[Rfam]
A member of the RNA family "Small Cajal body-specific RNA 7" from Microtus ochrogaster, 323 nucleotides long. For this family Rfam cites "Cajal body-specific small nuclear RNAs: a novel class of 2'-O-methylation and pseudouridylation guide RNAs" (Darzacq et al., EMBO J, 2002).

RNA sequence: UGGAAAUGAUGAAAUAGAGAUACUUGGGUGUUGAAUGUUGCCAUGAAUGGAAAUUAUUAAUACAUAUAGUAGUUCUAGUUUAAUGUUUCAUUUAUACUUAAUAGUGUGAAUGUGUGCAUGCGUGUGUGUGUGUGUGUGGUGGCUAUGAAAGGGGGCACUGAACGGUGAUGCUGAUAUUGGAGUGCAUCUGAGGCUGUUGUAGAAUAACGUGGGUUGUUGAUUACAAUACUGCCGAUGAUUAUAACCCAAAAACAGCUCACCUAAGUAGCCCAGCACCCUAAAAUCUCUAACAGGAUCAUUAAAUGUCCUGUGAUCUGAUCCGA
Numbered sequence: 001u002g003g004a005a006a007u008g009a010u011g012a013a014a015u016a017g018a019g020a021u022a023c024u025u026g027g028g029u030g031u032u033g034a035a036u037g038u039u040g041c042c043a044u045g046a047a048u049g050g051a052a053a054u055u056a057u058u059a060a061u062a063c064a065u066a067u068a069g070u071a072g073u074u075c076u077a078g079u080u081u082a083a084u085g086u087u088u089c090a091u092u093u094a095u096a097c098u099u100a101a102u103a104g105u106g107u108g109a110a111u112g113u114g115u116g117c118a119u120g121c122g123u124g125u126g127u128g129u130g131u132g133u134g135u136g137u138g139g140u141g142g143c144u145a146u147g148a149a150a151g152g153g154g155g156c157a158c159u160g161a162a163c164g165g166u167g168a169u170g171c172u173g174a175u176a177u178u179g180g181a182g183u184g185c186a187u188c189u190g191a192g193g194c195u196g197u198u199g200u201a202g203a204a205u206a207a208c209g210u211g212g213g214u215u216g217u218u219g220a221u222u223a224c225a226a227u228a229c230u231g232c233c234g235a236u237g238a239u240u241a242u243a244a245c246c247c248a249a250a251a252a253c254a255g256c257u258c259a260c261c262u263a264a265g266u267a268g269c270c271c272a273g274c275a276c277c278c279u280a281a282a283a284u285c286u287c288u289a290a291c292a293g294g295a296u297c298a299u300u301a302a303a304u305g306u307c308c309u310g311u312g313a314u315c316u317g318a319u320c321c322g323a
Stems, first nucleotide, its partner, number of pairs: 001322004195228008203218006
Annotation:
Its family is annotated with nucleolus and RNA processing in the Gene Ontology. The source organism's lineage runs through Eukaryota, Metazoa, Teleostomi, Muroidea and Microtus. The pairing is the family consensus, mapped onto this sequence.